The family of this 351-nucleotide RNA sequence from Nitrosococcus halophilus is "Bacterial RNase P class A".
It scores 340 bits against the family's covariance model.
The source organism's lineage runs through Bacteria, Pseudomonadati, Gammaproteobacteria, Chromatiales and Nitrosococcus halophilus.
The family's consensus secondary structure is taken from published work.
RNA sequence: AGAGACGACUAGACAGCCGCGUUAUCUCUUGGGAUAGCGAGGAAAGUCCGGGCUCCACAGGGCAGGGUGCCAGGUAACGCCUGGGAGGCGUGAGCCUACGGAAAGUGCCGCAGAAAAUAUACCGCCUAAGCGCCUGCGGGUGCCGGUAAGGGUGAAAAGGUGCGGUAAGAGCGCACCGCGCGGGUGGCAACAUUCCGCGGCAGGGUAAACCCCACUCGGAGCAAGGCCAAAUAGAGGAACCAAGGUGUGGCCCGCACCGUUCCCGGGUAGGCCGCUUGAGAUGUACGGUGACGUGCAUCCUAGAUGAAUGGCUGUCCAUGACAGAACCCGGCUUAUCGGUCGUCUCAACCC
Numbered sequence: 001a002g003a004g005a006c007g008a009c010u011a012g013a014c015a016g017c018c019g020c021g022u023u024a025u026c027u028c029u030u031g032g033g034a035u036a037g038c039g040a041g042g043a044a045a046g047u048c049c050g051g052g053c054u055c056c057a058c059a060g061g062g063c064a065g066g067g068u069g070c071c072a073g074g075u076a077a078c079g080c081c082u083g084g085g086a087g088g089c090g091u092g093a094g095c096c097u098a099c100g101g102a103a104a105g106u107g108c109c110g111c112a113g114a115a116a117a118u119a120u121a122c123c124g125c126c127u128a129a130g131c132g133c134c135u136g137c138g139g140g141u142g143c144c145g146g147u148a149a150g151g152g153u154g155a156a157a158a159g160g161u162g163c164g165g166u167a168a169g170a171g172c173g174c175a176c177c178g179c180g181c182g183g184g185u186g187g188c189a190a191c192a193u194u195c196c197g198c199g200g201c202a203g204g205g206u207a208a209a210c211c212c213c214a215c216u217c218g219g220a221g222c223a224a225g226g227c228c229a230a231a232u233a234g235a236g237g238a239a240c241c242a243a244g245g246u247g248u249g250g251c252c253c254g255c256a257c258c259g260u261u262c263c264c265g266g267g268u269a270g271g272c273c274g275c276u277u278g279a280g281a282u283g284u285a286c287g288g289u290g291a292c293g294u295g296c297a298u299c300c301u302a303g304a305u306g307a308a309u310g311g312c313u314g315u316c317c318a319u320g321a322c323a324g325a326a327c328c329c330g331g332c333u334u335a336u337c338g339g340u341c342g343u344c345u346c347a348a349c350c351c
Stems, first nucleotide, its partner, number of pairs: 002346009011336001012316007020039008044334003048331005053221004060253004065217005070084005085099001086097004100212002105210002107206003122151002124147003130143005159177006178201001179199005184193003225273004236263005244258005280299008